[Rfam]
RNA: c-di-AMP riboswitch aptamer (ydaO/yuaA leader)
Organism: Streptomyces sp. RKND-216
RNA sequence: CAGGGAAAAGCGCAGUAGUCAGCAACGGCAGGAGCGGGGGAACCAGGUAAGCGCCGCGCCGCACGACGGCCGGCUUGGGGUGAAGCCAUGCCUCAUCGCGCCCCCACGCGACGGGACAUGGCCGGGCAACUCUUCUCGCCCGAAUCCGACAGCUCACCUCGCAGGCGUAGGAGAGGAUUCAC
Numbered sequence: 001c002a003g004g005g006a007a008a009a010g011c012g013c014a015g016u017a018g019u020c021a022g023c024a025a026c027g028g029c030a031g032g033a034g035c036g037g038g039g040g041a042a043c044c045a046g047g048u049a050a051g052c053g054c055c056g057c058g059c060c061g062c063a064c065g066a067c068g069g070c071c072g073g074c075u076u077g078g079g080g081u082g083a084a085g086c087c088a089u090g091c092c093u094c095a096u097c098g099c100g101c102c103c104c105c106a107c108g109c110g111a112c113g114g115g116a117c118a119u120g121g122c123c124g125g126g127c128a129a130c131u132c133u134u135c136u137c138g139c140c141c142g143a144a145u146c147c148g149a150c151a152g153c154u155c156a157c158c159u160c161g162c163a164g165g166c167g168u169a170g171g172a173g174a175g176g177a178u179u180c181a182c
Stems, first nucleotide, its partner, number of pairs: 011167003019032002034162006044077005078147003086121004124141004